Shown here is a 64-nucleotide RNA sequence from Myotis davidii, a member of the family "mir-9242 microRNA precursor family". Rfam 15.1 lists 940 matches to the family in 18 species.
RNA sequence: GGCCUCCCUCUGUUGGGUGAUCGAUCUGGGGGCCCCACGGUCGAUUGCCCUGCAGAGGGAGGCC
Numbered sequence: 001g002g003c004c005u006c007c008c009u010c011u012g013u014u015g016g017g018u019g020a021u022c023g024a025u026c027u028g029g030g031g032g033c034c035c036c037a038c039g040g041u042c043g044a045u046u047g048c049c050c051u052g053c054a055g056a057g058g059g060a061g062g063c064c
Base pairs, nucleotide, nucleotide: 001064002063003062004061005060006059007058008057009056010055011054012053013052015050016049017048018047019046020045021044022043023042024041025040026039029036030035